RNA sequence: UCAAUCCUUCGGGGCAGGGUGAGGCCACGCGGCCAAUUCCCGAUCGGUGGUGAUCCGACACAGGUUCGGCGAGUCCACGAGCCAGAUAGGCAGGAACUGGUGAGAAUCCAGUACCGACGGUACAGUCCGGAUGAAAGAAGGAAUCG
Numbered sequence: 001u002c003a004a005u006c007c008u009u010c011g012g013g014g015c016a017g018g019g020u021g022a023g024g025c026c027a028c029g030c031g032g033c034c035a036a037u038u039c040c041c042g043a044u045c046g047g048u049g050g051u052g053a054u055c056c057g058a059c060a061c062a063g064g065u066u067c068g069g070c071g072a073g074u075c076c077a078c079g080a081g082c083c084a085g086a087u088a089g090g091c092a093g094g095a096a097c098u099g100g101u102g103a104g105a106a107u108c109c110a111g112u113a114c115c116g117a118c119g120g121u122a123c124a125g126u127c128c129g130g131a132u133g134a135a136a137g138a139a140g141g142a143a144u145c146g
Stems, first nucleotide, its partner, number of pairs: 003144001005142006017041003043126002045116002047078004073114002083090001096112005118129003